[Rfam]
The record is an 85-nucleotide RNA from Microctonus aethiopoides, which matches "mir-46/mir-47/mir-281 microRNA precursor family" in Rfam. The family's consensus secondary structure was predicted with RNAalifold. Lineage of the source: Eukaryota > Arthropoda > Allotriocarida > Pterygota > Microctonus.

RNA sequence: AGCGGUUUGCUAUCAAGAGAGCUAUCCAUCGACAGUAUGGUAAUAAUAAAACUGUCAUGGAGUUGCUCUCUUUGUGGAGACCGUU
Dot-bracket structure: ..............((((.(((..((((..(((.((..............)).))).))))...))).)))).............